[Rfam]
RNA sequence: AUAAUGAUACAUCUACAGUUGAUUGCCGGCUCAUCUGGAAAAGGGGCGGAGGUGAAAUUCCUAUGU
Numbered sequence: 001a002u003a004a005u006g007a008u009a010c011a012u013c014u015a016c017a018g019u020u021g022a023u024u025g026c027c028g029g030c031u032c033a034u035c036u037g038g039a040a041a042a043g044g045g046g047c048g049g050a051g052g053u054g055a056a057a058u059u060c061c062u063a064u065g066u
Base pairs, nucleotide, nucleotide: 012063013025015023026049027048028047030045031044032043050062051061052060